[Rfam]
RNA sequence: GCCCCAGCUAGGCCCGCGUCGAAAACGGGUCGAAACGCCAGCCCCCCACUGGCUUGCUGGGGCACCUUGCAUCGGGG
Number, nucleotide and partner (000 for none) at each position: 001g063002c062003c061004c060005c059006a058007g057008c056009u000010a000011g031012g030013c029014c028015c027016g026017c000018g000019u000020c000021g000022a000023a000024a000025a000026c016027g015028g014029g013030u012031c011032g000033a000034a000035a000036c000037g053038c052039c051040a050041g049042c000043c077044c076045c075046c074047c000048a072049c041050u040051g039052g038053c037054u000055u000056g008057c007058u006059g005060g004061g003062g002063c001064a000065c000066c000067u000068u000069g000070c000071a000072u048073c000074g046075g045076g044077g043
RNA: int-alpA RNA
Organism: beta proteobacterium AAP65